Description:
The family of this 278-nucleotide sequence from Spathaspora passalidarum is "Nuclear RNase P". By type it is a ribozyme. Ribonuclease P (RNase P) is a ubiquitous endoribonuclease, found in archaea, bacteria and eukarya as well as chloroplasts and mitochondria. The match comes from Rfam's covariance-model search (62 bits).

RNA sequence: AUCGUUUCGCAUUUACCCGUCUACACAAAGAGAUAACUUAAUCUCAUACAAAACAUGGGUGGGAAAUUCGGUGAUUCACUCCAUCCAACCUACUUUUUGCUCCUGAGAGUAUCCCUAGUGUGAAAACACAUGGGUAAUGCCACAAGAAAUAACAAUGGACCACUUGCGGGUCUGUUAUGGGAAUGGCGUUACGGAUGGUUGGUCCAUGCUUUUUUGUGUGGGCUGUUUAGUGCAAUAUGCGAAUUUGUUUUCACAAAUACCCGAUACCGAUCAUCGAU
Dot-bracket structure: ((((.(((((((..(((((..........(((((......)))))..........)))))........[[[[[.........((((...........(((((....)))))......((((......))))...(((((((............((((((...........))))))........))))))).))))........................................)))))))(((((....))))).......]]]]].....))))
Numbered sequence: 001a002u003c004g005u006u007u008c009g010c011a012u013u014u015a016c017c018c019g020u021c022u023a024c025a026c027a028a029a030g031a032g033a034u035a036a037c038u039u040a041a042u043c044u045c046a047u048a049c050a051a052a053a054c055a056u057g058g059g060u061g062g063g064a065a066a067u068u069c070g071g072u073g074a075u076u077c078a079c080u081c082c083a084u085c086c087a088a089c090c091u092a093c094u095u096u097u098u099g100c101u102c103c104u105g106a107g108a109g110u111a112u113c114c115c116u117a118g119u120g121u122g123a124a125a126a127c128a129c130a131u132g133g134g135u136a137a138u139g140c141c142a143c144a145a146g147a148a149a150u151a152a153c154a155a156u157g158g159a160c161c162a163c164u165u166g167c168g169g170g171u172c173u174g175u176u177a178u179g180g181g182a183a184u185g186g187c188g189u190u191a192c193g194g195a196u197g198g199u200u201g202g203u204c205c206a207u208g209c210u211u212u213u214u215u216g217u218g219u220g221g222g223c224u225g226u227u228u229a230g231u232g233c234a235a236u237a238u239g240c241g242a243a244u245u246u247g248u249u250u251u252c253a254c255a256a257a258u259a260c261c262c263g264a265u266a267c268c269g270a271u272c273a274u275c276g277a278u
Stems, first nucleotide, its partner, number of pairs: 001278004006243007015060005030045005069269005083196004098111005118131004135191007154176006244257005